[Rfam]
RNA sequence: CACUCAUCAACAGUUAAGGCUUUGGUGGUGCGACCUGUAAAUAUGGUCAGCUUGUUUACCCUGCGUUGAGCGAAUACUUUAAGAGGUCUGUAAAAGUACGAGUAAUGAAAAUGAAACUAUAAGACAGC
Numbered sequence: 001c002a003c004u005c006a007u008c009a010a011c012a013g014u015u016a017a018g019g020c021u022u023u024g025g026u027g028g029u030g031c032g033a034c035c036u037g038u039a040a041a042u043a044u045g046g047u048c049a050g051c052u053u054g055u056u057u058a059c060c061c062u063g064c065g066u067u068g069a070g071c072g073a074a075u076a077c078u079u080u081a082a083g084a085g086g087u088c089u090g091u092a093a094a095a096g097u098a099c100g101a102g103u104a105a106u107g108a109a110a111a112u113g114a115a116a117c118u119a120u121a122a123g124a125c126a127g128c
Stems, first nucleotide, its partner, number of pairs: 001030002004028007013020002062072003086128001088127004096120003105112002

Shown here is a 128-nucleotide RNA, a member of the family "Bacteriophage Diversity-Generating Retroelement RNA". By type it is a small RNA. On this family, see Handa et al., Nature 2025: "RNA control of reverse transcription in a diversity-generating retroelement".